[Rfam]
RNA sequence: CCCCAAUGAAUCCUGUCAGGACCCCUUCUCGAAAUUCUUACGGAGGUUUGUCUGUUACAACAUUGGGAGAGUAAUCACCAUGCUCGACUGUCGGCAGCGUUUUGCUGUUUGGCUAGACUGGCAACCGUUCUGGUUGCGGUCGUGAGAAGGUUCUGGGUCGAAUUGAGUUGAAGGCUCCUAGGUCCUUUUAGAGGACAAGUUCACGGGAGUCUUCUUAGUUAUGACUCACACAUUU
Numbered sequence: 001c002c003c004c005a006a007u008g009a010a011u012c013c014u015g016u017c018a019g020g021a022c023c024c025c026u027u028c029u030c031g032a033a034a035u036u037c038u039u040a041c042g043g044a045g046g047u048u049u050g051u052c053u054g055u056u057a058c059a060a061c062a063u064u065g066g067g068a069g070a071g072u073a074a075u076c077a078c079c080a081u082g083c084u085c086g087a088c089u090g091u092c093g094g095c096a097g098c099g100u101u102u103u104g105c106u107g108u109u110u111g112g113c114u115a116g117a118c119u120g121g122c123a124a125c126c127g128u129u130c131u132g133g134u135u136g137c138g139g140u141c142g143u144g145a146g147a148a149g150g151u152u153c154u155g156g157g158u159c160g161a162a163u164u165g166a167g168u169u170g171a172a173g174g175c176u177c178c179u180a181g182g183u184c185c186u187u188u189u190a191g192a193g194g195a196c197a198a199g200u201u202c203a204c205g206g207g208a209g210u211c212u213u214c215u216u217a218g219u220u221a222u223g224a225c226u227c228a229c230a231c232a233u234u235u
Base pairs, nucleotide, nucleotide: 003066004065005064006063007062019053020052021051022050024046025045026044027043028042077151078150079149081147083146093109094108095107096106097105098104116141117140118139119138120137122136123135124134125133126132127131154228155227156226158224159223160222170214171213172212173211176208177207178206179205182196183195184194185193186192
Shown here is a 235-nucleotide sequence from Akanthomyces lecanii, a member of the family "Small nucleolar RNA snR191". NCBI's taxonomy places the organism under Eukaryota, Opisthokonta, Pezizomycotina, sordariomyceta, Akanthomyces. It is annotated as an H/ACA-box small nucleolar RNA. Its family is annotated with RNA processing and nucleolus in the Gene Ontology. The family is grouped with related families in Rfam's "SNORA74 clan".